A member of the RNA family "Mu-gpT-DE RNA", 53 nucleotides long. It is annotated as a small RNA. It is one of the family's seed sequences.
RNA sequence: CCCUGACAGUUACACUCCGUAACUGACAUUAGCCAAGACAGGAGAUCCACAUG
Numbered sequence: 001c002c003c004u005g006a007c008a009g010u011u012a013c014a015c016u017c018c019g020u021a022a023c024u025g026a027c028a029u030u031a032g033c034c035a036a037g038a039c040a041g042g043a044g045a046u047c048c049a050c051a052u053g
Base pairs, nucleotide, nucleotide: 002042003041004040005039007025008024009023010022011021